A member of the RNA family "Hepatitis C virus stem-loop SL8001 RNA", 58 nucleotides long. It is annotated as a cis-regulatory element. Rfam's curators write: Even though Hepatitis C virus (HCV) SL8001 is not required for overall replication, conformational changes in this motif tune the initial rate of replication. Rfam's curators put it in the seed alignment. The literature on the family includes a 2016 paper in Mol Cell by Pirakitikulr et al., "The Coding Region of the HCV Genome Contains a Network of Regulatory RNA Structures".
RNA sequence: CAUUCCAGCAAGGCCAUACGCCACAUCAACUCCGUGUGGGAAGACCUUCUGGAGGACA
Numbered sequence: 001c002a003u004u005c006c007a008g009c010a011a012g013g014c015c016a017u018a019c020g021c022c023a024c025a026u027c028a029a030c031u032c033c034g035u036g037u038g039g040g041a042a043g044a045c046c047u048u049c050u051g052g053a054g055g056a057c058a
Stems, first nucleotide, its partner, number of pairs: 004053005010047001012045001014043001021039006